Record summary: The family of this 75-nucleotide RNA from Erpetoichthys calabaricus is "mir-551 microRNA precursor family".
RNA sequence: AGGCCCAAGAAAUCAAGCAUGGGUGAAACCUGAAGCAAAUAUAUCAAGGCGACCCAUACUUGGUUUUCAGGGCUU
Numbered sequence: 001a002g003g004c005c006c007a008a009g010a011a012a013u014c015a016a017g018c019a020u021g022g023g024u025g026a027a028a029c030c031u032g033a034a035g036c037a038a039a040u041a042u043a044u045c046a047a048g049g050c051g052a053c054c055c056a057u058a059c060u061u062g063g064u065u066u067u068c069a070g071g072g073c074u075u
Base pairs, nucleotide, nucleotide: 002074003073004072005071006070009067010066011065012064013063014062016060017059021055022054023053024052029049030048031047

The family's consensus secondary structure was predicted with RNAalifold.
The family has 29 seed sequences and 1,097 matches in Rfam 15.1.